The record is a 130-nucleotide RNA sequence from Geodermatophilus obscurus, which matches "SAM riboswitch aptamer (S box leader)" in Rfam. The family's consensus secondary structure is taken from published work.
RNA sequence: CACUCAUCCAGAGGGGCAGAGGGACACGGCCCGACGAAGCCCCGGCAACCGCCGCACCGCGCGUCAGCGCAGCGGAAGGUGCCAAUUCCGUCCCGCGCGGCUCGACGGCCCGAUGCGGGGAAGAUGAGGA
Numbered sequence: 001c002a003c004u005c006a007u008c009c010a011g012a013g014g015g016g017c018a019g020a021g022g023g024a025c026a027c028g029g030c031c032c033g034a035c036g037a038a039g040c041c042c043c044g045g046c047a048a049c050c051g052c053c054g055c056a057c058c059g060c061g062c063g064u065c066a067g068c069g070c071a072g073c074g075g076a077a078g079g080u081g082c083c084a085a086u087u088c089c090g091u092c093c094c095g096c097g098c099g100g101c102u103c104g105a106c107g108g109c110c111c112g113a114u115g116c117g118g119g120g121a122a123g124a125u126g127a128g129g130a
Base pairs, nucleotide, nucleotide: 003128004127005126006125007124008123013043014042015041016040017039021032022031023030026091027090028089029088044083045082046081047080049079050078052075053074054073055072087122092119093118094117095116096115097114
The SAM riboswitch is found upstream of a number of genes which code for proteins involved in methionine or cysteine biosynthesis in Gram-positive bacteria.
The source organism's lineage runs through Bacteria, Actinomycetes, Geodermatophilaceae, Geodermatophilus and Geodermatophilus obscurus.